[Rfam]
RNA sequence: GGGGCCGUUUUGGAUUUGACAGGGUGGAGGUACGUAUGUUAGCAUGCAGUGCGUUGUACGGAGAGCACUUUAAAGAGAACGUUCACACUUUGAUUGGCGAAAAUAACUACGCCUUAGCUGCUUAAUUUAGAAUUAAAUAGCUUUUGUCCCUCUGGUUGCUGCGUUUUUAGGCCAGAAUCUGGGGCAUCGAAAUAAUUACGCUGGCAAUUGUAAGGUACGGUACAGUUGUGAGAUAAAGUAUCUAAGGAGAAAGGCAAGGUAGGUUUCCGGCCCGUCUGAUCCCGAAAAUAAAGUGGAAAAUAAGCAUGUAGAAGGCAUAAUUUGCCACACAACUGGACAAGGGUUCGAACCCCUUCGGCUCCACAC
Numbered sequence: 001g002g003g004g005c006c007g008u009u010u011u012g013g014a015u016u017u018g019a020c021a022g023g024g025u026g027g028a029g030g031u032a033c034g035u036a037u038g039u040u041a042g043c044a045u046g047c048a049g050u051g052c053g054u055u056g057u058a059c060g061g062a063g064a065g066c067a068c069u070u071u072a073a074a075g076a077g078a079a080c081g082u083u084c085a086c087a088c089u090u091u092g093a094u095u096g097g098c099g100a101a102a103a104u105a106a107c108u109a110c111g112c113c114u115u116a117g118c119u120g121c122u123u124a125a126u127u128u129a130g131a132a133u134u135a136a137a138u139a140g141c142u143u144u145u146g147u148c149c150c151u152c153u154g155g156u157u158g159c160u161g162c163g164u165u166u167u168u169a170g171g172c173c174a175g176a177a178u179c180u181g182g183g184g185c186a187u188c189g190a191a192a193u194a195a196u197u198a199c200g201c202u203g204g205c206a207a208u209u210g211u212a213a214g215g216u217a218c219g220g221u222a223c224a225g226u227u228g229u230g231a232g233a234u235a236a237a238g239u240a241u242c243u244a245a246g247g248a249g250a251a252a253g254g255c256a257a258g259g260u261a262g263g264u265u266u267c268c269g270g271c272c273c274g275u276c277u278g279a280u281c282c283c284g285a286a287a288a289u290a291a292a293g294u295g296g297a298a299a300a301u302a303a304g305c306a307u308g309u310a311g312a313a314g315g316c317a318u319a320a321u322u323u324g325c326c327a328c329a330c331a332a333c334u335g336g337a338c339a340a341g342g343g344u345u346c347g348a349a350c351c352c353c354u355u356c357g358g359c360u361c362c363a364c365a366c
Stems, first nucleotide, its partner, number of pairs: 001362007020335003024330003032322001035319006043308005048069005055085002058082003118140003145186006151176007163201002166198001204229009214242005246283002249280001252277004258272003264299003267295001339355005
The record is a 366-nucleotide sequence from Pedobacter hartonius, which matches "transfer-messenger RNA" in Rfam. It is annotated as a non-coding RNA gene. About the family: Bacterial tmRNA, also known as 10Sa RNA or SsrA, is named for its dual tRNA and mRNA-like properties. Its role is to liberate the mRNA from a stalled ribosome. Taxonomically the source falls in Pedobacter (Bacteria, Pseudomonadati, Sphingobacteriia, Sphingobacteriaceae). It scores 117 bits against the family's covariance model. The base pairs follow the family's consensus structure, which is taken from published work. Its family is annotated with RNA catabolic process in the Gene Ontology.